[Rfam]
RNA sequence: ACAUCACCACCAUCAUUCUGACUGACGGCCUUCAGAGUGUGGAAGGUCCGUUAUACCGGUACCUUCCAGGAAUCUAAUAAAGCCCCCGGAAGCGUACCUUUCGGGGGCUUUUUAAU
Number, nucleotide and partner (000 for none) at each position: 001a000002c000003a000004u000005c000006a000007c000008c039009a038010c037011c000012a000013u000014c000015a000016u000017u000018c035019u034020g033021a032022c000023u000024g000025a000026c000027g000028g000029c000030c000031u000032u021033c020034a019035g018036a000037g010038u009039g008040u068041g067042g066043a065044a064045g063046g062047u061048c000049c000050g000051u000052u000053a000054u000055a000056c000057c000058g000059g000060u000061a047062c046063c045064u044065u043066c042067c041068a040069g000070g000071a000072a000073u000074c000075u000076a000077a113078u000079a111080a110081a109082g108083c107084c106085c105086c104087c103088g102089g101090a100091a099092g098093c000094g000095u000096a000097c000098c092099u091100u090101u089102c088103g087104g086105g085106g084107g083108c082109u081110u080111u079112u000113u077114a000115a000116u000
RNA: Histidine operon leader
Organism: Aliidiomarina soli